Rfam assigns this 90-nucleotide RNA sequence from Desulfosporosinus fructosivorans to the family "c-di-GMP-I riboswitch aptamer". From the family's description: GEMM was predicted in a large-scale screen for bacterial structured RNA regulatory elements. Rfam links the family to the GO term cyclic-di-GMP binding.
[Rfam]
RNA sequence: UAAAGCCAAGGGCAAACCCAUCUGAAGACGGGGAUGCAAUGCCGUAGGGUCUAAGGCGCUGAACAGCGCUAUGAUAGCCUGGUUGCCAAA
Numbered sequence: 001u002a003a004a005g006c007c008a009a010g011g012g013c014a015a016a017c018c019c020a021u022c023u024g025a026a027g028a029c030g031g032g033g034a035u036g037c038a039a040u041g042c043c044g045u046a047g048g049g050u051c052u053a054a055g056g057c058g059c060u061g062a063a064c065a066g067c068g069c070u071a072u073g074a075u076a077g078c079c080u081g082g083u084u085g086c087c088a089a090a
Stems, first nucleotide, its partner, number of pairs: 012037002017032003021028002041083003046080003049075003056069004